[Rfam]
Shown here is a 199-nucleotide RNA sequence from Zizania palustris, a member of the family "Early nodulin 40". Lineage of the source: Eukaryota > Viridiplantae > Liliopsida > Poaceae > Zizania. A reference for the family is Gultyaev and Roussis (2007), "Identification of conserved secondary structures and expansion segments in enod40 RNAs reveals new enod40 homologues in plants", Nucleic Acids Res. The family's RNA type in Rfam is non-coding RNA gene. The family has 35 seed sequences and 341 matches in Rfam 15.1. It scores 131 bits against the family's covariance model.
RNA sequence: AUGGAAGAUGCAUGGCUUGAACAUGUUCAUGGUUCUUGAGAGCAGAAGUAGAAUGAGGAUGAAGAGCAAUGGCUGUGCUCCACCUCAAGAAGUUUGUCAACUCUGUGGUGCCUUUCCUGACCUCCUCUUGGUGGUUGGCUGAGGUACGCACAAACCGGCAAGUCACAAAUCGGCAAUGGUGAACUCCAGUAGGAGUCCA
Numbered sequence: 001a002u003g004g005a006a007g008a009u010g011c012a013u014g015g016c017u018u019g020a021a022c023a024u025g026u027u028c029a030u031g032g033u034u035c036u037u038g039a040g041a042g043c044a045g046a047a048g049u050a051g052a053a054u055g056a057g058g059a060u061g062a063a064g065a066g067c068a069a070u071g072g073c074u075g076u077g078c079u080c081c082a083c084c085u086c087a088a089g090a091a092g093u094u095u096g097u098c099a100a101c102u103c104u105g106u107g108g109u110g111c112c113u114u115u116c117c118u119g120a121c122c123u124c125c126u127c128u129u130g131g132u133g134g135u136u137g138g139c140u141g142a143g144g145u146a147c148g149c150a151c152a153a154a155c156c157g158g159c160a161a162g163u164c165a166c167a168a169a170u171c172g173g174c175a176a177u178g179g180u181g182a183a184c185u186c187c188a189g190u191a192g193g194a195g196u197c198c199a
Base pairs, nucleotide, nucleotide: 050079051078092155093154094153095152096151097150111148113146183196184195185194186193